[Rfam]
RNA sequence: CCAGAUCGGAACAGCUUCACCUCCUCCCGAGGUUGUCCCGAAAUACGGCAACGAUCUUCCUCCUCCCUGAUCGGAGCCGCACAUAAGAACGGUGAUGCGCCCUCCCUGCAUCACCGUUUUUUU
Numbered sequence: 001c002c003a004g005a006u007c008g009g010a011a012c013a014g015c016u017u018c019a020c021c022u023c024c025u026c027c028c029g030a031g032g033u034u035g036u037c038c039c040g041a042a043a044u045a046c047g048g049c050a051a052c053g054a055u056c057u058u059c060c061u062c063c064u065c066c067c068u069g070a071u072c073g074g075a076g077c078c079g080c081a082c083a084u085a086a087g088a089a090c091g092g093u094g095a096u097g098c099g100c101c102c103u104c105c106c107u108g109c110a111u112c113a114c115c116g117u118u119u120u121u122u123u
Stems, first nucleotide, its partner, number of pairs: 007040003011036007046079004052073004088118011

A member of the RNA family "Alphaproteobacterial ar14" from Litoreibacter arenae, 123 nucleotides long. From the family's description: Smr14C2 was renamed NfeR1 (Nodule Formation Efficiency RNA) highly expressed in salt stress and during the symbiotic interaction on legume roots. The match comes from Rfam's covariance-model search (68 bits). Gene Ontology term of the family: biological process involved in symbiotic interaction. The organism belongs to Litoreibacter arenae, within Bacteria. Rfam 15.1 lists 784 matches to the family in 332 species. The family's RNA type in Rfam is small RNA.